Nucleotides: 071
Base pairs, nucleotide, nucleotide: 001070002069003068004067005066006065007064010024011023012022013021026042027041028040029039030038047063048062049061050060051059
Number, partner (000 for none) and nucleotide at each position: 001070g002069c003068u004067u005066c006065c007064g008000u009000a010024g011023g012022u013021u014000a015000a016000u017000g018000g019000c020000a021013g022012a023011c024010c025000u026042c027041a028040g029039c030038a031000a032000u033000g034000g035000u036000a037000a038030u039029g040028c041027u042026g043000c044000a045000g046000u047063g048062c049061g050060a051059g052000u053000u054000c055000g056000a057000u058000u059051c060050u061049c062048g063047c064007c065006g066005g067004a068003a069002g070001c071000a
Rfam assigns this 71-nucleotide RNA sequence from Exiguobacterium artemiae to the family "tRNA". NCBI's taxonomy places the organism under Bacteria, Bacillati, Bacillota, Bacilli, Exiguobacterium artemiae. Its family is annotated with triplet codon-amino acid adaptor activity in the Gene Ontology. The match comes from Rfam's covariance-model search (63 bits). Pairs were carried over by alignment from the consensus structure, which is taken from published work.